This 93-nucleotide RNA from Dactylellina haptotyla belongs to the Rfam family "tRNA". Taxonomically the source falls in Dactylellina haptotyla (Eukaryota, Opisthokonta, Fungi, Ascomycota). Its family is annotated with triplet codon-amino acid adaptor activity in the Gene Ontology.

RNA sequence: GCCGACAUAGUAUAGUGGUUAGUACGUAUCGUUGUGGAUUCCGAAAGGUCAUACGCUCCCGAUACAGCCUCAGUUCGAUUCUGGGUGUCGGCA
Numbered sequence: 001g002c003c004g005a006c007a008u009a010g011u012a013u014a015g016u017g018g019u020u021a022g023u024a025c026g027u028a029u030c031g032u033u034g035u036g037g038a039u040u041c042c043g044a045a046a047g048g049u050c051a052u053a054c055g056c057u058c059c060c061g062a063u064a065c066a067g068c069c070u071c072a073g074u075u076c077g078a079u080u081c082u083g084g085g086u087g088u089c090g091g092c093a
Stems, first nucleotide, its partner, number of pairs: 001092007010025004027064005069085005
It scores 52 bits against the family's covariance model.